[Rfam]
RNA sequence: UUCCUAUUGUCAAUGGCACUGGAAGAAUUCACGGAUGGAUAACGAAUCGUGGAUUCUUUAGUGCUAAGGAUAAAAGGAA
Dot-bracket structure: ..(((.((((...(((((.(((..((..((((((............)))))).))..))).)))))...)))).)))..
Description
This 79-nucleotide RNA from Trichonephila inaurata belongs to the Rfam family "mir-263 microRNA precursor family". The literature on the family includes a 2009 paper in BMC Genomics by Li et al., "Direct sequencing and expression analysis of a large number of miRNAs in Aedes aegypti and a multi-species survey of novel mosquito miRNAs". The match comes from Rfam's covariance-model search (54 bits). Its Rfam clan is "mir-182 clan".